[Rfam]
RNA sequence: GUAGUGGUCGCUGAGUUAGAACUUAACAGCGUAAUUCCACCGCCGGACACGAUCGAAGAGG
Dot-bracket structure: ...((((.((((((((....)))...))))).....)))).....................
Rfam assigns this 61-nucleotide sequence to the family "cow-rumen-1 RNA". The family's RNA type in Rfam is small RNA. The family's consensus secondary structure is taken from published work.